[Rfam]
RNA sequence: GUCCUUCAAAUCCCCGUCCGCCUGCCCUAUAUUCAUCAGCGUCGGGUUCGCCCGACUAUGGGGAUAAACGCGCGCGAAAUAAGCGGACUGGACCCGGGUGCGAUUCCCGGCGGCUCCACCAAGAUCUUCCUCCGGGUUAUCGCCGGAAAAGUGCGGGGCCGAUCAGCAUCGACAGACGUGUAAAGGCGUUGCUUUCUCCCGGCCUGACCCACCGUUUCGGGUCAUUAAACUAAAUGCGAACGAUAACUUCGCUGAGGAAGUCCGCCUGGCCGCGUAAUGCGGUCCGGUAGAAAUCCGACCUAAGCCCUAGGGGUUCAGAUCCUUAGGCGGGGCCCGGUGGGGGCCUGGCAACAGAACCCCACCACC
Number, nucleotide and partner (000 for none) at each position: 001g000002u000003c000004c000005u000006u000007c000008a000009a000010a000011u000012c000013c000014c000015c000016g000017u000018c000019c000020g000021c000022c000023u000024g000025c000026c000027c000028u000029a000030u000031a000032u000033u000034c000035a000036u000037c000038a000039g000040c000041g056042u055043c054044g053045g052046g000047u000048u000049c000050g000051c000052c045053c044054g043055a042056c041057u000058a000059u000060g199061g198062g197063g196064a195065u000066a000067a000068a000069c000070g192071c191072g189073c188074g187075c186076g000077a000078a000079a000080u000081a000082a000083g000084c178085g177086g000087a000088c175089u174090g173091g000092a000093c000094c110095c109096g108097g107098g106099u000100g000101c000102g000103a000104u000105u000106c098107c097108c096109g095110g094111c161112g160113g159114c158115u157116c156117c155118a000119c000120c000121a000122a000123g000124a000125u000126c000127u000128u000129c000130c000131u000132c000133c000134g000135g000136g000137u000138u000139a000140u000141c000142g000143c000144c000145g000146g000147a000148a000149a000150a000151g000152u000153g000154c000155g117156g116157g115158g114159c113160c112161g111162a000163u000164c000165a000166g000167c000168a000169u000170c000171g000172a000173c090174a089175g088176a000177c085178g084179u000180g000181u000182a000183a000184a000185g000186g075187c074188g073189u072190u000191g071192c070193u000194u000195u064196c063197u062198c061199c060200c214201g213202g212203c000204c000205u224206g223207a222208c221209c220210c219211a000212c202213c201214g200215u000216u000217u000218c000219g210220g209221g208222u207223c206224a205225u000226u000227a000228a000229a000230c000231u000232a000233a000234a000235u000236g000237c000238g000239a000240a000241c000242g000243a000244u000245a000246a000247c000248u000249u000250c000251g000252c000253u000254g000255a000256g000257g000258a000259a000260g000261u000262c000263c000264g000265c000266c000267u000268g000269g000270c000271c000272g000273c000274g000275u000276a000277a000278u000279g000280c000281g000282g000283u000284c000285c000286g000287g000288u000289a000290g000291a000292a000293a000294u000295c000296c000297g000298a000299c000300c000301u000302a000303a000304g000305c000306c000307c000308u000309a000310g000311g000312g000313g000314u000315u000316c000317a000318g000319a000320u000321c000322c000323u000324u000325a000326g000327g000328c000329g000330g346331g345332g344333c343334c000335c000336g363337g362338u361339g360340g359341g358342g000343g333344c332345c331346u330347g000348g000349c000350a000351a000352c000353a000354g000355a000356a000357c000358c341359c340360c339361a338362c337363c336364a000365c000366c000
Alphaproteobacteria transfer-messenger RNA: a 366-nucleotide sequence from Phenylobacterium zucineum.
Taxonomically the source falls in Phenylobacterium zucineum (Bacteria, Pseudomonadati, Pseudomonadota, Phenylobacterium).
Bacterial tmRNA, also known as 10Sa RNA or SsrA, is named for its dual tRNA and mRNA-like properties. Its role is to liberate the mRNA from a stalled ribosome. To accomplish this part of the tmRNA is used as a reading frame that ends in a translation stop signal. The broken mRNA is replaced in the ribosome by the tmRNA and translation of the tmRNA leads to addition of a proteolysis tag to the incomplete protein enabling recognition by a protease. Recently a number of permuted tmRNA genes have been found encoded in two parts. tmRNAs have been identified in eubacteria and some chloroplasts but are absent from archaeal and eukaryote nuclear genomes.